Rfam assigns this 98-nucleotide RNA sequence from Chlorocebus sabaeus to the family "Vault RNA".

[Rfam]
RNA sequence: GGACUGGCUCUAUCUCAGGGGUUCCUUCCAUAAAGUGUCAGCUUUCAGUUUCCCCUUUGGGAGUGGUUUGAGACCUGAGGGUACUCUCUAGUUCUUAG
Numbered sequence: 001g002g003a004c005u006g007g008c009u010c011u012a013u014c015u016c017a018g019g020g021g022u023u024c025c026u027u028c029c030a031u032a033a034a035g036u037g038u039c040a041g042c043u044u045u046c047a048g049u050u051u052c053c054c055c056u057u058u059g060g061g062a063g064u065g066g067u068u069u070g071a072g073a074c075c076u077g078a079g080g081g082u083a084c085u086c087u088c089u090a091g092u093u094c095u096u097a098g
Stems, first nucleotide, its partner, number of pairs: 002093006014081003020076002026072003030068001

The match comes from Rfam's covariance-model search (42 bits). It is annotated as a non-coding RNA gene.